RNA: Plastid-psbN 5UTR RNA
RNA sequence: UGCGAACAAAUGAGUUGUUCCCCACCCGGGAGCUACUUUACCAUAUUCCAAAUUC
Numbered sequence: 001u002g003c004g005a006a007c008a009a010a011u012g013a014g015u016u017g018u019u020c021c022c023c024a025c026c027c028g029g030g031a032g033c034u035a036c037u038u039u040a041c042c043a044u045a046u047u048c049c050a051a052a053u054u055c
Stems, first nucleotide, its partner, number of pairs: 012038004017033005